Small nucleolar RNA ACA64: a 116-nucleotide sequence from Bucco capensis.
RNA sequence: ACAAUCCGAAAAUCACUUGGGGUCUUCUGUGGCCCCUGGUGCGAUAACUGUGCCAACAGCAGAGGCAGCAUUGCCCACAGUAAAGUGUGGGUAGUGAAACCCAUGUUCCUAUAAUC
Numbered sequence: 001a002c003a004a005u006c007c008g009a010a011a012a013u014c015a016c017u018u019g020g021g022g023u024c025u026u027c028u029g030u031g032g033c034c035c036c037u038g039g040u041g042c043g044a045u046a047a048c049u050g051u052g053c054c055a056a057c058a059g060c061a062g063a064g065g066c067a068g069c070a071u072u073g074c075c076c077a078c079a080g081u082a083a084a085g086u087g088u089g090g091g092u093a094g095u096g097a098a099a100c101c102c103a104u105g106u107u108c109c110u111a112u113a114a115u116c
Stems, first nucleotide, its partner, number of pairs: 006050001008048001010045001014041003021034004065109001067107005072093001076089003

Gene Ontology terms of the family: nucleolus and RNA processing. The source organism's lineage runs through Eukaryota, Bilateria, Telluraves, Coraciimorphae and Bucco. Pairs were carried over by alignment from the consensus structure, which was predicted with WAR. Rfam classes the family as an H/ACA-box small nucleolar RNA.